[Rfam]
RNA sequence: GGUCUCCUGUUUCUUACCACAGGCUGUGCUUCUAUCCUGUAUAGAAAGAGGAGGCAGAGUAAACCUACCAUAUACACCUCAGCCACUGUGCCGGGCGUGUGUGUGUGCGUGCCCAAGA
Numbered sequence: 001g002g003u004c005u006c007c008u009g010u011u012u013c014u015u016a017c018c019a020c021a022g023g024c025u026g027u028g029c030u031u032c033u034a035u036c037c038u039g040u041a042u043a044g045a046a047a048g049a050g051g052a053g054g055c056a057g058a059g060u061a062a063a064c065c066u067a068c069c070a071u072a073u074a075c076a077c078c079u080c081a082g083c084c085a086c087u088g089u090g091c092c093g094g095g096c097g098u099g100u101g102u103g104u105g106u107g108c109g110u111g112c113c114c115a116a117g118a
Base pairs, nucleotide, nucleotide: 002055003054004053005052006051007050008049020039021038022037069109071107072106073105075099076098077097078095079094080093082091083090
Rfam assigns this 118-nucleotide sequence from Tupaia belangeri to the family "Small nucleolar RNA SNORA51". The source organism's lineage runs through Eukaryota, Metazoa, Gnathostomata, Dipnotetrapodomorpha and Tupaia belangeri. ACA51 is a member of the H/ACA class of snoRNA that guide the sites of modification of uridines to pseudouridines.